RNA sequence: UGGCGGGGACGCGACUGGCGCGGUCAAGGUGGAGACGACCACCGGGGAGCGACGACGGUCCGUGCACCGCGCGCCUGGGUGAACGGG
Numbered sequence: 001u002g003g004c005g006g007g008g009a010c011g012c013g014a015c016u017g018g019c020g021c022g023g024u025c026a027a028g029g030u031g032g033a034g035a036c037g038a039c040c041a042c043c044g045g046g047g048a049g050c051g052a053c054g055a056c057g058g059u060c061c062g063u064g065c066a067c068c069g070c071g072c073g074c075c076u077g078g079g080u081g082a083a084c085g086g087g
Stems, first nucleotide, its partner, number of pairs: 004057002008053001010051003015046002017075005029042004065081004